Notes
Shown here is a 79-nucleotide RNA from Lactiplantibacillus plantarum, a member of the family "L17 ribosomal protein downstream element". It is annotated as a cis-regulatory element. The sequence is in the family's curated seed alignment.
RNA sequence: CGGGCGUUAUGAUGGUGGCUACUGGCAAAAUAGUAGCUAAGUCUAGUUCGGAAGUUAUUUAUGGUUAGACAUAGAUGGC
Numbered sequence: 001c002g003g004g005c006g007u008u009a010u011g012a013u014g015g016u017g018g019c020u021a022c023u024g025g026c027a028a029a030a031u032a033g034u035a036g037c038u039a040a041g042u043c044u045a046g047u048u049c050g051g052a053a054g055u056u057a058u059u060u061a062u063g064g065u066u067a068g069a070c071a072u073a074g075a076u077g078g079c
Stems, first nucleotide, its partner, number of pairs: 002049004011043003017038008054079009